Rfam assigns this 48-nucleotide sequence from Lathyrus oleraceus to the family "Plastid-ycf3 group II-D1 intron". A search with the family's covariance model found it, with a score of 57 bits. The literature on the family includes a 2023 paper in Plant Commun by Richter et al., "Retrograde signaling in plants: A critical review focusing on the GUN pathway and beyond". Rfam describes the family as follows. Plastid rpl16 is a non-coding RNA (ncRNA) recognised in plastids.

[Rfam]
RNA sequence: AUCCCUUUUGUCGUGUAUUCUCGAUUAAUGCAACCUCAAUAUGCUUCA
Numbered sequence: 001a002u003c004c005c006u007u008u009u010g011u012c013g014u015g016u017a018u019u020c021u022c023g024a025u026u027a028a029u030g031c032a033a034c035c036u037c038a039a040u041a042u043g044c045u046u047c048a
Stems, first nucleotide, its partner, number of pairs: 010025004032045001034043001